TPP riboswitch aptamer (THI element): a 106-nucleotide sequence from Thiomicrospira sp. WB1. Gene Ontology term of the family: thiamine pyrophosphate binding. The family's consensus secondary structure is taken from published work.
RNA sequence: GCCCAAGCCGAGGGGUGGUCGUUACGGCCUGAGAUCCAUCACAGAUGGGAACCCUUUAAACCUGAUCCAGUUAAUACUGGCGUAGGAACAGGCUGCAGCCCAUCUU
Numbered sequence: 001g002c003c004c005a006a007g008c009c010g011a012g013g014g015g016u017g018g019u020c021g022u023u024a025c026g027g028c029c030u031g032a033g034a035u036c037c038a039u040c041a042c043a044g045a046u047g048g049g050a051a052c053c054c055u056u057u058a059a060a061c062c063u064g065a066u067c068c069a070g071u072u073a074a075u076a077c078u079g080g081c082g083u084a085g086g087a088a089c090a091g092g093c094u095g096c097a098g099c100c101c102a103u104c105u106u
Stems, first nucleotide, its partner, number of pairs: 006094004011055004016049001017029005036048005061086004067080004